[Rfam]
RNA sequence: CCGCAUGAUGCGGCAUACAGGGUCCAGUCACAAAAAGCCCCGAUUAUCGGGGUUUUUUGUUAUCAGGAAGCAGCAUCACUGGGCUAUUAAGCCCUUUUUUU
Numbered sequence: 001c002c003g004c005a006u007g008a009u010g011c012g013g014c015a016u017a018c019a020g021g022g023u024c025c026a027g028u029c030a031c032a033a034a035a036a037g038c039c040c041c042g043a044u045u046a047u048c049g050g051g052g053u054u055u056u057u058u059g060u061u062a063u064c065a066g067g068a069a070g071c072a073g074c075a076u077c078a079c080u081g082g083g084c085u086a087u088u089a090a091g092c093c094c095u096u097u098u099u100u101u
Base pairs, nucleotide, nucleotide: 034056035055036054037053038052039051040050041049042048081094082093083092084091
This 101-nucleotide RNA from Enterobacterales bacterium CwR94 belongs to the Rfam family "Gammaprotebacteria rimP leader". The family's consensus secondary structure is taken from published work. Rfam links the family to the GO term regulation of gene expression.